[Rfam]
This 178-nucleotide sequence from Trachymyrmex septentrionalis belongs to the Rfam family "R2 RNA element". For this family Rfam cites "Reverse transcription of R2Bm RNA is primed by a nick at the chromosomal target site: a mechanism for non-LTR retrotransposition" (Luan et al., Cell, 1993). Rfam links the family to the GO term regulation of reverse transcription. This family represents the 3' UTR region of the R2 retrotransposable element. This family is known to interact with the R2-encoded reverse transcriptase in a reaction known as target primed reverse transcription (TPRT). It scores 41 bits against the family's covariance model. Rfam classes the family as a cis-regulatory element. The family's consensus secondary structure is taken from published work.
RNA sequence: UUGCAUACAGGGGGAGUUUUUUUUAGCAGGUAGGCGAUGUGUCUCUUUUAGAGAUGCAAAUGUAUCGAAUCCUGCACAUCCAGGGGACCGACCCCUGGGCGUCUUCCCAUUAUUCGGAUAAAUUCUUCUCGAAGCACCCCAGAUGAUGGGCAUUGUGAAGAUUUUUUUUCUUUCGCAA
Numbered sequence: 001u002u003g004c005a006u007a008c009a010g011g012g013g014g015a016g017u018u019u020u021u022u023u024u025a026g027c028a029g030g031u032a033g034g035c036g037a038u039g040u041g042u043c044u045c046u047u048u049u050a051g052a053g054a055u056g057c058a059a060a061u062g063u064a065u066c067g068a069a070u071c072c073u074g075c076a077c078a079u080c081c082a083g084g085g086g087a088c089c090g091a092c093c094c095c096u097g098g099g100c101g102u103c104u105u106c107c108c109a110u111u112a113u114u115c116g117g118a119u120a121a122a123u124u125c126u127u128c129u130c131g132a133a134g135c136a137c138c139c140c141a142g143a144u145g146a147u148g149g150g151c152a153u154u155g156u157g158a159a160g161a162u163u164u165u166u167u168u169u170c171u172u173u174c175g176c177a178a
Base pairs, nucleotide, nucleotide: 001178002177003176004175012174013173014172015171016170026075027074028073029072030071035067036066037065038064039063040062041055042054043053044052045051077150080149081148082147